mir-150 microRNA precursor family: an 83-nucleotide RNA from Galemys pyrenaicus. Gene Ontology terms of the family: RISC complex and miRNA-mediated post-transcriptional gene silencing. The literature on the family includes a 2008 paper in Genome Res by Murchison et al., "Conservation of small RNA pathways in platypus". Pairs were carried over by alignment from the consensus structure, which was predicted with RNAalifold.
RNA sequence: CCUCACGGCCCUGUCUCCCAACCCUUGUACCAGUGCUGUGCCUCGGUCGCUGGUACAGGCGUGUGGGGGGCAGGGACCUGGGG
Numbered sequence: 001c002c003u004c005a006c007g008g009c010c011c012u013g014u015c016u017c018c019c020a021a022c023c024c025u026u027g028u029a030c031c032a033g034u035g036c037u038g039u040g041c042c043u044c045g046g047u048c049g050c051u052g053g054u055a056c057a058g059g060c061g062u063g064u065g066g067g068g069g070g071c072a073g074g075g076a077c078c079u080g081g082g083g
Stems, first nucleotide, its partner, number of pairs: 010074003014070002016067003022059002026057007